[Rfam]
RNA sequence: AGCACUGUGGUAUCUGCAGCCAGUUGGUUUGUCUACUGGUUUGUUUAAAUGUCAGUGCUAGACAAACUCAAUUGGCAUCGAUGGUCUCCAUUCUGUCUGUGUUUGGAGUCCUGGUAUAUUUGUUGAAACACUA
Number, nucleotide and partner (000 for none) at each position: 001a000002g058003c057004a056005c055006u054007g053008u000009g000010g000011u000012a052013u051014c000015u049016g044017c043018a042019g041020c000021c039022a037023g036024u035025u000026g033027g000028u000029u000030u000031g000032u000033c026034u000035a024036c023037u022038g000039g021040u000041u019042u018043g017044u016045u000046u000047a000048a000049a015050u000051g013052u012053c007054a006055g005056u004057g003058c002059u000060a000061g000062a121063c000064a119065a000066a117067c000068u114069c113070a112071a000072u000073u000074g103075g102076c101077a100078u099079c000080g000081a000082u000083g000084g000085u000086c000087u000088c000089c000090a000091u000092u000093c000094u000095g000096u000097c000098u000099g078100u077101g076102u075103u074104u000105g000106g000107a000108g000109u000110c000111c000112u070113g069114g068115u000116a000117u066118a000119u064120u000121u062122g000123u000124u000125g000126a000127a000128a000129c000130a000131c000132u000133a000
RNA: Small nucleolar RNA SNORA8